[Rfam]
RNA sequence: AUGUACAGUUAACGCCCAUGUGUGCUUUUUUUGUAGCUCCCAUGGAUUUUACUGUGCUACAGUAAAGUGUUGUCUAUAACCUCUGCAUUGGAGGAGUUGCAUUCUCCUCCACAUGUAUUCAGCAGACCAGUACAUUU
Number, nucleotide and partner (000 for none) at each position: 001a000002u000003g057004u056005a055006c054007a053008g052009u000010u051011a000012a000013c000014g000015c000016c045017c044018a043019u042020g041021u000022g039023u000024g037025c036026u035027u000028u000029u000030u000031u000032u000033g000034u000035a026036g025037c024038u000039c022040c000041c020042a019043u018044g017045g016046a000047u000048u000049u000050u000051a010052c008053u007054g006055u005056g004057c003058u000059a075060c000061a073062g000063u000064a070065a000066a000067g000068u000069g000070u064071u000072g000073u061074c000075u059076a000077u000078a000079a000080c000081c000082u000083c122084u121085g120086c115087a114088u113089u000090g110091g109092a108093g107094g106095a105096g104097u000098u000099g000100c000101a000102u000103u000104c096105u095106c094107c093108u092109c091110c090111a000112c000113a088114u087115g086116u000117a000118u000119u000120c085121a084122g083123c000124a000125g000126a000127c000128c000129a000130g000131u000132a000133c000134a000135u000136u000137u000
A member of the RNA family "Small nucleolar RNA SNORA22" from Coregonus sp. 'balchen', 137 nucleotides long. The base pairs follow the family's consensus structure, which was predicted with RNAfold. By type it is an H/ACA-box small nucleolar RNA. NCBI's taxonomy places the organism under Eukaryota, Bilateria, Actinopteri, Salmoniformes, Coregonus. Rfam's curators write: ACA22 is a member of the H/ACA class of snoRNA that guide the sites of modification of uridines to pseudouridines.